RNA sequence: CCUCCAUUUCACGUUCUCUCUCGCCGGUCAGAGAGACGAGAGAGCACGUGAAAUGAAGAGA
Numbered sequence: 001c002c003u004c005c006a007u008u009u010c011a012c013g014u015u016c017u018c019u020c021u022c023g024c025c026g027g028u029c030a031g032a033g034a035g036a037c038g039a040g041a042g043a044g045c046a047c048g049u050g051a052a053a054u055g056a057a058g059a060g061a
Stems, first nucleotide, its partner, number of pairs: 002058002005055003010050001012048003016044002019041004